The family of this 128-nucleotide RNA sequence from Leptonychotes weddellii is "U4 spliceosomal RNA".
RNA sequence: AGCUUUGCGCAGUGGCAGUGUCGUAGCCAAUGAGGUUUAUCCGAGGCGCGAUUAUUGCUCAUUGAGAUAGUUUCCUCCAGUCAUGUUAUGAUCUGUCAGCAUAGAUGCACUUUUUACUCUUCCAAGAG
Numbered sequence: 001a002g003c004u005u006u007g008c009g010c011a012g013u014g015g016c017a018g019u020g021u022c023g024u025a026g027c028c029a030a031u032g033a034g035g036u037u038u039a040u041c042c043g044a045g046g047c048g049c050g051a052u053u054a055u056u057g058c059u060c061a062u063u064g065a066g067a068u069a070g071u072u073u074c075c076u077c078c079a080g081u082c083a084u085g086u087u088a089u090g091a092u093c094u095g096u097c098a099g100c101a102u103a104g105a106u107g108c109a110c111u112u113u114u115u116a117c118u119c120u121u122c123c124a125a126g127a128g
Stems, first nucleotide, its partner, number of pairs: 020052005026047003034042002084107002086104005092098001117128004
About this RNA
The base pairs follow the family's consensus structure, which is taken from published work. For this family Rfam cites "Mechanism of 5' splice site transfer for human spliceosome activation" (Charenton et al., Science, 2019). Lineage of the source: Eukaryota > Metazoa > Deuterostomia > Vertebrata > Leptonychotes. By type it is a spliceosomal small nuclear RNA.